[Rfam]
RNA: L2-Alphaproteobacteria ribosomal protein leader
RNA sequence: GGGCACCUACGGGGGCCUUUACCACAUAGGCCUCGCAAGAGGCCGCCAAGCAAACGGAAGAAGCUA
Numbered sequence: 001g002g003g004c005a006c007c008u009a010c011g012g013g014g015g016c017c018u019u020u021a022c023c024a025c026a027u028a029g030g031c032c033u034c035g036c037a038a039g040a041g042g043c044c045g046c047c048a049a050g051c052a053a054a055c056g057g058a059a060g061a062a063g064c065u066a
Stems, first nucleotide, its partner, number of pairs: 001018004006014003029044006